Rfam assigns this 90-nucleotide RNA sequence from Nicotiana sylvestris to the family "MIR6152 microRNA precursor family". The source organism's lineage runs through Eukaryota, Viridiplantae, Mesangiospermae, Solanaceae and Nicotiana. Gene Ontology terms of the family: RISC complex and miRNA-mediated post-transcriptional gene silencing.
RNA sequence: UGGACAGAUUAUUGUAUUCGACUGUAUUCACGGUAGGGGAUGACACUGUUUUUAAAAGAGAAAGUGAAUCAACUAACAUAAUAGACUCUA
Numbered sequence: 001u002g003g004a005c006a007g008a009u010u011a012u013u014g015u016a017u018u019c020g021a022c023u024g025u026a027u028u029c030a031c032g033g034u035a036g037g038g039g040a041u042g043a044c045a046c047u048g049u050u051u052u053u054a055a056a057a058g059a060g061a062a063a064g065u066g067a068a069u070c071a072a073c074u075a076a077c078a079u080a081a082u083a084g085a086c087u088c089u090a
Stems, first nucleotide, its partner, number of pairs: 002089003009084007017076002020074001023071002026069006034048003